[Rfam]
RNA: Bacillaceae-1 RNA
Organism: Sporolactobacillus inulinus
RNA sequence: UAUAAAGGAACUUCCGCUAAAGGCAUGCACAUCCUGUGCACAAAGCGGAAGUCAUCACAUCCUGUGAA
Numbered sequence: 001u002a003u004a005a006a007g008g009a010a011c012u013u014c015c016g017c018u019a020a021a022g023g024c025a026u027g028c029a030c031a032u033c034c035u036g037u038g039c040a041c042a043a044a045g046c047g048g049a050a051g052u053c054a055u056c057a058c059a060u061c062c063u064g065u066g067a068a
Stems, first nucleotide, its partner, number of pairs: 011051007026040005055067004